Background
Shown here is a 51-nucleotide RNA from Cnephaeus nilssonii, a member of the family "mir-1302 microRNA precursor family". The base pairs follow the family's consensus structure, which was predicted with WAR. On this family, see Morin et al., Genome Res 2008: "Application of massively parallel sequencing to microRNA profiling and discovery in human embryonic stem cells". Its family is annotated with miRNA-mediated post-transcriptional gene silencing and RISC complex in the Gene Ontology. NCBI's taxonomy places the organism under Eukaryota, Eumetazoa, Bilateria, Craniata, Cnephaeus. The match comes from Rfam's covariance-model search (63 bits).

[Rfam]
RNA sequence: GUUUCAGUAUAAUAUGUCCCAUGUAAUAUUUGGGACAUAUUUACACUAAAA
Numbered sequence: 001g002u003u004u005c006a007g008u009a010u011a012a013u014a015u016g017u018c019c020c021a022u023g024u025a026a027u028a029u030u031u032g033g034g035a036c037a038u039a040u041u042u043a044c045a046c047u048a049a050a051a
Stems, first nucleotide, its partner, number of pairs: 006047003010043003013039003017035004021030001